The record is an 86-nucleotide RNA from Vagococcus acidifermentans, which matches "SAM-III riboswitch aptamer (SMK box)" in Rfam. The organism belongs to Vagococcus, within Bacteria. It scores 66 bits against the family's covariance model.
[Rfam]
RNA sequence: CAAUGUUGCAAGAUUCCCGAUAGGAUUUAUUGAUGAAACAAUAAAGAUUCCUUGUAACCGAAAAAAAAUUAGGGGGAAUGAAAUUG
Numbered sequence: 001c002a003a004u005g006u007u008g009c010a011a012g013a014u015u016c017c018c019g020a021u022a023g024g025a026u027u028u029a030u031u032g033a034u035g036a037a038a039c040a041a042u043a044a045a046g047a048u049u050c051c052u053u054g055u056a057a058c059c060g061a062a063a064a065a066a067a068a069u070u071a072g073g074g075g076g077a078a079u080g081a082a083a084u085u086g
Stems, first nucleotide, its partner, number of pairs: 014078005022052003026045007058073002